The record is a 107-nucleotide RNA from Virgibacillus phasianinus, which matches "TPP riboswitch aptamer (THI element)" in Rfam.
Rfam links the family to the GO term thiamine pyrophosphate binding.
Vitamin B(1) in its active form thiamin pyrophosphate (TPP) is an essential coenzyme that is synthesised by coupling of pyrimidine and thiazole moieties in bacteria.
RNA sequence: CACGAACACUGGGGGAGCAUUUCAUUAGCUGAGAAGAACUUUAUUAGUUCUGACCCUUUUCACCCGAAAUGGAUAAUACUAGCGUGGGGAAGUGUAGUCAAACGUGU
Number, nucleotide and partner (000 for none) at each position: 001c000002a000003c000004g000005a000006a095007c094008a093009c092010u091011g057012g056013g055014g054015g000016a051017g029018c028019a000020u000021u000022u000023c000024a000025u000026u000027a000028g018029c017030u000031g000032a000033g000034a000035a000036g050037a049038a048039c047040u046041u000042u000043a000044u000045u000046a040047g039048u038049u037050c036051u016052g000053a000054c014055c013056c012057u011058u000059u000060u000061c000062a000063c088064c087065c086066g085067a000068a000069a000070u081071g080072g079073a000074u000075a000076a000077u000078a000079c072080u071081a070082g000083c000084g000085u066086g065087g064088g063089g000090a000091a010092g009093u008094g007095u006096a000097g000098u000099c000100a000101a000102a000103c000104g000105u000106g000107u000
The organism belongs to Virgibacillus, within Bacteria.